[Rfam]
RNA sequence: CUUCUCUACACAAACACGGAUCUGUGCCCAGCCGUCCCCUGCUUGCUCCGGCGAGUCCAGGGUCGAUGGCUGCGGCAGCUCGAUUACUUCAAGGAGCCAUCAUUAUUUCUCAUGGUGUCAAUCUUCCAAUCGACAGGUCCAAGAGCAGCCGGGCGCUGGGAAGCCGAGUUCGCUGUAAAAGGCUUGAGCUUGCGUGGAACAGCUGCCCCGGGGACGUCAUAUUCCAAGUCCCUUCUCCGAGGCCAUCGGUCGAUGAGGGUGGGAAAAACCAUGACAAUAGCCCACAUAC
Numbered sequence: 001c002u003u004c005u006c007u008a009c010a011c012a013a014a015c016a017c018g019g020a021u022c023u024g025u026g027c028c029c030a031g032c033c034g035u036c037c038c039c040u041g042c043u044u045g046c047u048c049c050g051g052c053g054a055g056u057c058c059a060g061g062g063u064c065g066a067u068g069g070c071u072g073c074g075g076c077a078g079c080u081c082g083a084u085u086a087c088u089u090c091a092a093g094g095a096g097c098c099a100u101c102a103u104u105a106u107u108u109c110u111c112a113u114g115g116u117g118u119c120a121a122u123c124u125u126c127c128a129a130u131c132g133a134c135a136g137g138u139c140c141a142a143g144a145g146c147a148g149c150c151g152g153g154c155g156c157u158g159g160g161a162a163g164c165c166g167a168g169u170u171c172g173c174u175g176u177a178a179a180a181g182g183c184u185u186g187a188g189c190u191u192g193c194g195u196g197g198a199a200c201a202g203c204u205g206c207c208c209c210g211g212g213g214a215c216g217u218c219a220u221a222u223u224c225c226a227a228g229u230c231c232c233u234u235c236u237c238c239g240a241g242g243c244c245a246u247c248g249g250u251c252g253a254u255g256a257g258g259g260u261g262g263g264a265a266a267a268a269c270c271a272u273g274a275c276a277a278u279a280g281c282c283c284a285c286a287u288a289c
Base pairs, nucleotide, nucleotide: 018140019139020138021137022136023135024134025133026076027075028074029072030071031070033068034067035066036065037062038061039060040059041058043055046051084132086130088129089128093119094118096116097115098114151208152207153206161195163193164192166191167190168189169188170187171186172183173182213282215280216275217274218273219272220271229264230263231262232261236259237258238257241251242250243249244248
Rfam assigns this 289-nucleotide RNA from Pleurostoma richardsiae to the family "A. fumigatus sRNA Afu_309".
It is annotated as a small RNA.
The family has 10 seed sequences and 663 matches in Rfam 15.1.
Lineage of the source: Eukaryota > Ascomycota > Pezizomycotina > Pleurostomataceae > Pleurostoma.
It scores 138 bits against the family's covariance model.
The literature on the family includes a 2008 paper in Nucleic Acids Res by Jochl et al., "Small ncRNA transcriptome analysis from Aspergillus fumigatus suggests a novel mechanism for regulation of protein synthesis".